[Rfam]
RNA: t44 RNA
Organism: Halomonas sp. YLB-10
RNA sequence: AGCCUCGCGCCUUGAAAACACACACGCACCGACACAUGGUCCCGGGUGCCUGAGGGAAACCUCUGGUCGGAUCCAUGGGGUGCGUGGAGGCCUAAC
Numbered sequence: 001a002g003c004c005u006c007g008c009g010c011c012u013u014g015a016a017a018a019c020a021c022a023c024a025c026g027c028a029c030c031g032a033c034a035c036a037u038g039g040u041c042c043c044g045g046g047u048g049c050c051u052g053a054g055g056g057a058a059a060c061c062u063c064u065g066g067u068c069g070g071a072u073c074c075a076u077g078g079g080g081u082g083c084g085u086g087g088a089g090g091c092c093u094a095a096c
Stems, first nucleotide, its partner, number of pairs: 023086008035077005040071003048067003052063001
Dot-bracket structure: ......................((((((((....((((((((.....(((.(..........).))).))).))))).))))))))..........